[Rfam]
RNA: Group II catalytic intron D1-D4-3
RNA sequence: ACCGCCGCGAGGUGGGGUCUGAAAGAAGCGUAUAGCAAAUGUGCGAGUCGAUGGACAAAAACCUGAUACAAGGCGUUAGCGCCGGACGAGCGGGCAACUUACCGCGAAGUCCAUAUCCAUCAAGGGUGCGAAGCGUAGAUUCGGCGGCUGUGCACAGAAGACGGCUGAACUU
Numbered sequence: 001a002c003c004g005c006c007g008c009g010a011g012g013u014g015g016g017g018u019c020u021g022a023a024a025g026a027a028g029c030g031u032a033u034a035g036c037a038a039a040u041g042u043g044c045g046a047g048u049c050g051a052u053g054g055a056c057a058a059a060a061a062c063c064u065g066a067u068a069c070a071a072g073g074c075g076u077u078a079g080c081g082c083c084g085g086a087c088g089a090g091c092g093g094g095c096a097a098c099u100u101a102c103c104g105c106g107a108a109g110u111c112c113a114u115a116u117c118c119a120u121c122a123a124g125g126g127u128g129c130g131a132a133g134c135g136u137a138g139a140u141u142c143g144g145c146g147g148c149u150g151u152g153c154a155c156a157g158a159a160g161a162c163g164g165c166u167g168a169a170c171u172u
Base pairs, nucleotide, nucleotide: 002015003014004013005012006011028172030170031169035165036164040156041155042154043153044152045151046149047148048147049146050145062144063143065141066140067139073136074135075134076132077131079129080128081127082126084112085111086110087109090105091104092103093102
Dot-bracket structure: .(((((....)))))............(.((...((...(((((((((((...........((.(((.....(((((.((((.((((..((((........))))...)))).............)))).)).)))..))).))))))).)))))).......))...)).)